[Rfam]
RNA: Bacterial large subunit ribosomal RNA, nucleotides 2698 to 2958
Organism: Archangium sp. Cb G35
RNA sequence: GGAUACUUGAGAGGCUCUGACCUUAGUACGAGAGGACCGGGUUGGAGACACCGCUGGUGUACCAGUUGUCUCGCCAGAGGCAUCGCUGGGUAGCCAUGUGUCGAUUGGAUAACCGCUGAAAGCAUCUAAGCGGGAAACCGACCUCAAGAACAGGUAUCCCGGGCGCAAGCCCCUGAAGACCCGUCGAAGACUACGACGUUGAUAGGCCGGGUGUGUAAGCGCGGUAACGCGUUGAGCUAACCGGUACUAAUUGGUCGUGCG
Numbered sequence: 001g002g003a004u005a006c007u008u009g010a011g012a013g014g015c016u017c018u019g020a021c022c023u024u025a026g027u028a029c030g031a032g033a034g035g036a037c038c039g040g041g042u043u044g045g046a047g048a049c050a051c052c053g054c055u056g057g058u059g060u061a062c063c064a065g066u067u068g069u070c071u072c073g074c075c076a077g078a079g080g081c082a083u084c085g086c087u088g089g090g091u092a093g094c095c096a097u098g099u100g101u102c103g104a105u106u107g108g109a110u111a112a113c114c115g116c117u118g119a120a121a122g123c124a125u126c127u128a129a130g131c132g133g134g135a136a137a138c139c140g141a142c143c144u145c146a147a148g149a150a151c152a153g154g155u156a157u158c159c160c161g162g163g164c165g166c167a168a169g170c171c172c173c174u175g176a177a178g179a180c181c182c183g184u185c186g187a188a189g190a191c192u193a194c195g196a197c198g199u200u201g202a203u204a205g206g207c208c209g210g211g212u213g214u215g216u217a218a219g220c221g222c223g224g225u226a227a228c229g230c231g232u233u234g235a236g237c238u239a240a241c242c243g244g245u246a247c248u249a250a251u252u253g254g255u256c257g258u259g260c261g
Base pairs, nucleotide, nucleotide: 001159002158003157004156005155006154007153008152011145012144013143014142017045018044019043020042021041022040023039047102048101049100050099051098055096056095057094062089063088064087065086066085067082068081069080070079071078072077106140107139108138113133114132115131116130117129162173163172175258178256179255180254181253182198183197184196185195186194203249204248205247206245207244208243209242210241213237219232220231221230222229223228